[Rfam]
A member of the RNA family "SAM riboswitch aptamer (S box leader)" from Frankia alni, 116 nucleotides long. The source organism's lineage runs through Bacteria, Bacillati, Frankiales, Frankiaceae and Frankia alni. Rfam's curators put it in the seed alignment.

RNA sequence: GGCUCAUCCAGAGGGGCAGAGGGAACGGCCCAGUGAAGCCCCGGCAACCACCCGCAUCCGAUGCGUGGCAGGUGCUAAUUCCGACCCGUGGCAGGUUGCCCCGGGAAAGAUGAGGA
Numbered sequence: 001g002g003c004u005c006a007u008c009c010a011g012a013g014g015g016g017c018a019g020a021g022g023g024a025a026c027g028g029c030c031c032a033g034u035g036a037a038g039c040c041c042c043g044g045c046a047a048c049c050a051c052c053c054g055c056a057u058c059c060g061a062u063g064c065g066u067g068g069c070a071g072g073u074g075c076u077a078a079u080u081c082c083g084a085c086c087c088g089u090g091g092c093a094g095g096u097u098g099c100c101c102c103g104g105g106a107a108a109g110a111u112g113a114g115g116a
Stems, first nucleotide, its partner, number of pairs: 003114006013042005021031003026083003043076004048072002051068002080108001085105004090100003